Shown here is a 100-nucleotide sequence from Terribacillus saccharophilus, a member of the family "Purine riboswitch aptamer". NCBI's taxonomy places the organism under Bacteria, Bacilli, Caryophanales, Bacillaceae, Terribacillus. Pairs were carried over by alignment from the consensus structure, which is taken from published work. Rfam links the family to the GO term purine nucleobase biosynthetic process. For this family Rfam cites "Riboswitches Control Fundamental Biochemical Pathways in Bacillus subtilis and Other Bacteria" (Mandal et al., Cell, 2003).
RNA sequence: UGGAAUACGUUCGUGUUACACUGUAUAACCUCAAUAAUUUGGUUUGAGGGUCUCUACCAGGAGCCAUAACUCCCUGAUUACAGAUUUUUAAUCUGUGAUU
Numbered sequence: 001u002g003g004a005a006u007a008c009g010u011u012c013g014u015g016u017u018a019c020a021c022u023g024u025a026u027a028a029c030c031u032c033a034a035u036a037a038u039u040u041g042g043u044u045u046g047a048g049g050g051u052c053u054c055u056a057c058c059a060g061g062a063g064c065c066a067u068a069a070c071u072c073c074c075u076g077a078u079u080a081c082a083g084a085u086u087u088u089u090a091a092u093c094u095g096u097g098a099u100u
Base pairs, nucleotide, nucleotide: 018086021083022082023081024080025079029049030048031047032046033045034044058076059075060074061073063071